Rfam assigns this 110-nucleotide RNA from Duganella sp. CF517 to the family "TPP riboswitch aptamer (THI element)".
The family's consensus secondary structure is taken from published work.

RNA sequence: GGCACACGCUAGGGGUCCUGCACAUCACAGUGAAUGCGAUGCGCGGGUGAGAAAUACCCUCCGAACCUGAUCUGGAUAAUGCCAGCGAAGGGAAGCUUAGGACAACGCCG
Numbered sequence: 001g002g003c004a005c006a007c008g009c010u011a012g013g014g015g016u017c018c019u020g021c022a023c024a025u026c027a028c029a030g031u032g033a034a035u036g037c038g039a040u041g042c043g044c045g046g047g048u049g050a051g052a053a054a055u056a057c058c059c060u061c062c063g064a065a066c067c068u069g070a071u072c073u074g075g076a077u078a079a080u081g082c083c084a085g086c087g088a089a090g091g092g093a094a095g096c097u098u099a100g101g102a103c104a105a106c107g108c109c110g
Base pairs, nucleotide, nucleotide: 006098008096009095010094011060012059013058014057016054017047018046019045020044021043066091067090068089072085073084074083075082
The organism belongs to Duganella, within Bacteria. The match comes from Rfam's covariance-model search (64 bits). Its family is annotated with thiamine pyrophosphate binding in the Gene Ontology.